[Rfam]
RNA sequence: UAAGGAAGUAUCCAAAGGGAUCGCAUUGAUCCGCUAGUGAAUACCAUCUUUUGUGUUUUGGAUCAUGCGAUCACUUUGGAACCCUCCUC
Numbered sequence: 001u002a003a004g005g006a007a008g009u010a011u012c013c014a015a016a017g018g019g020a021u022c023g024c025a026u027u028g029a030u031c032c033g034c035u036a037g038u039g040a041a042u043a044c045c046a047u048c049u050u051u052u053g054u055g056u057u058u059u060g061g062a063u064c065a066u067g068c069g070a071u072c073a074c075u076u077u078g079g080a081a082c083c084c085u086c087c088u089c
Base pairs, nucleotide, nucleotide: 003088004087005086006085008083011080012079013078014077015076016075017074019072020071021070023068024067025066026065028064029063030062031061032060036057037056038055